[Rfam]
RNA sequence: UAAAUCGAAGAGGCGCAACCGACAUGAGUAAGAGGCUCAAGCUACUAUAAGAGCGUUUGAGAGUCUUGUGAAAGGGGAAGUUGCCGAAGUGAGUGAUAGGUAUAGCUAUUACUUGGCUGGGUUGUAGUUUAAGAGACUGCAGACUGUCGCAAAUAAAGUGAUUUGCGGAGUGCUAUCGAUCUA
Numbered sequence: 001u002a003a004a005u006c007g008a009a010g011a012g013g014c015g016c017a018a019c020c021g022a023c024a025u026g027a028g029u030a031a032g033a034g035g036c037u038c039a040a041g042c043u044a045c046u047a048u049a050a051g052a053g054c055g056u057u058u059g060a061g062a063g064u065c066u067u068g069u070g071a072a073a074g075g076g077g078a079a080g081u082u083g084c085c086g087a088a089g090u091g092a093g094u095g096a097u098a099g100g101u102a103u104a105g106c107u108a109u110u111a112c113u114u115g116g117c118u119g120g121g122u123u124g125u126a127g128u129u130u131a132a133g134a135g136a137c138u139g140c141a142g143a144c145u146g147u148c149g150c151a152a153a154u155a156a157a158g159u160g161a162u163u164u165g166c167g168g169a170g171u172g173c174u175a176u177c178g179a180u181c182u183a
Stems, first nucleotide, its partner, number of pairs: 006178002009174002015084005023076001031069001032067007088118003091114009119145002122142008147168007
RNA: Lysine riboswitch aptamer